[Rfam]
RNA sequence: AGAACACACACUAAUUAUCCUUGGGGCAAUGGGACAAAUAAAUAACUUGCAAAAUCAAGUUAACACACCCUAGAAUGGUUCUAACACAAUUACUAACCUAUGUCUUUGAUACUAGUUAAAGGGAAAAACUC
Numbered sequence: 001a002g003a004a005c006a007c008a009c010a011c012u013a014a015u016u017a018u019c020c021u022u023g024g025g026g027c028a029a030u031g032g033g034a035c036a037a038a039u040a041a042a043u044a045a046c047u048u049g050c051a052a053a054a055u056c057a058a059g060u061u062a063a064c065a066c067a068c069c070c071u072a073g074a075a076u077g078g079u080u081c082u083a084a085c086a087c088a089a090u091u092a093c094u095a096a097c098c099u100a101u102g103u104c105u106u107u108g109a110u111a112c113u114a115g116u117u118a119a120a121g122g123g124a125a126a127a128a129c130u131c
Stems, first nucleotide, its partner, number of pairs: 009121001012118005022108005029101005048086002053080002056077002060073003